[Rfam]
RNA sequence: UGGAAAAAUAACUUCCCUCUUGUUUUAUCAAGAGGGCGUUAUUGCUCCUUUUUUA
Numbered sequence: 001u002g003g004a005a006a007a008a009u010a011a012c013u014u015c016c017c018u019c020u021u022g023u024u025u026u027a028u029c030a031a032g033a034g035g036g037c038g039u040u041a042u043u044g045c046u047c048c049u050u051u052u053u054u055a
Stems, first nucleotide, its partner, number of pairs: 002048003007043006017034006
Rfam assigns this 55-nucleotide RNA sequence to the family "Plastid-psbA-3 3UTR RNA".
Plastid psbA-3 is a non-coding RNA (ncRNA) present in plastids.
The family is grouped with related families in Rfam's "Plastid-psbA 3UTR RNA clan".
Pairs were carried over by alignment from the consensus structure, which was predicted with LocARNA.
It is one of the family's seed sequences.